The family of this 281-nucleotide sequence from Pseudomonas sp. TAD18 is "rne-II RNA". A search with the family's covariance model found it, with a score of 279 bits.
[Rfam]
RNA sequence: AUACGUGUGGGGUGGAGAUGCACAACCGCCGGACUGUGUAGCAAUAGGCUUUAUCAAGACGCUUCAUCUCGUCCACAGCCGCCGGUUGAUUCCUCCUCCUGACCAGACUUUUGCUUAAGCGGUGCUUUAGCACCACAGCAAGCAGGAAGCGUUAGUCGCGACUCGGCCCCCAGGGCCGAACCUCGCUGGACAAUGGAGUGGCCAACUACUCCUGACGCACCUGACACCGACCGUGAGAAGUCGUGUGUGCCGAACGCCGUUUCCGGCAGCCCGGAAACCGA
Numbered sequence: 001a002u003a004c005g006u007g008u009g010g011g012g013u014g015g016a017g018a019u020g021c022a023c024a025a026c027c028g029c030c031g032g033a034c035u036g037u038g039u040a041g042c043a044a045u046a047g048g049c050u051u052u053a054u055c056a057a058g059a060c061g062c063u064u065c066a067u068c069u070c071g072u073c074c075a076c077a078g079c080c081g082c083c084g085g086u087u088g089a090u091u092c093c094u095c096c097u098c099c100u101g102a103c104c105a106g107a108c109u110u111u112u113g114c115u116u117a118a119g120c121g122g123u124g125c126u127u128u129a130g131c132a133c134c135a136c137a138g139c140a141a142g143c144a145g146g147a148a149g150c151g152u153u154a155g156u157c158g159c160g161a162c163u164c165g166g167c168c169c170c171c172a173g174g175g176c177c178g179a180a181c182c183u184c185g186c187u188g189g190a191c192a193a194u195g196g197a198g199u200g201g202c203c204a205a206c207u208a209c210u211c212c213u214g215a216c217g218c219a220c221c222u223g224a225c226a227c228c229g230a231c232c233g234u235g236a237g238a239a240g241u242c243g244u245g246u247g248u249g250c251c252g253a254a255c256g257c258c259g260u261u262u263c264c265g266g267c268a269g270c271c272c273g274g275a276a277a278c279c280g281a
Base pairs, nucleotide, nucleotide: 014096015095016094017093023088024087025086026085027084028083030081031080032079036076037075038074040050041049042048058073059072060071061070097147098146099145100144101143150217151216152215153214155191156190157189158186159185160184161183164178165177166176167175168174195212196211197210198209199208200207201206224248225247226246227245228243229242230241231240259278260277261276262275263274264273265272